[Rfam]
RNA sequence: UGCGAUGAUGGUGUAAUUUGCGUCCGACACUGCGCACAGUGACAGUAGCCUGCUGUCUUCAUGCUGGCGCAGGUGGUUGACGAACAUUCAAAAUCUGAGCA
Numbered sequence: 001u002g003c004g005a006u007g008a009u010g011g012u013g014u015a016a017u018u019u020g021c022g023u024c025c026g027a028c029a030c031u032g033c034g035c036a037c038a039g040u041g042a043c044a045g046u047a048g049c050c051u052g053c054u055g056u057c058u059u060c061a062u063g064c065u066g067g068c069g070c071a072g073g074u075g076g077u078u079g080a081c082g083a084a085c086a087u088u089c090a091a092a093a094u095c096u097g098a099g100c101a
Stems, first nucleotide, its partner, number of pairs: 001101003021082004030072005039064002041057005
Description:
Small nucleolar RNA SNORD16: a 101-nucleotide RNA sequence from Conger conger. The family's RNA type in Rfam is C/D-box small nucleolar RNA. The family's consensus secondary structure was predicted with PFOLD.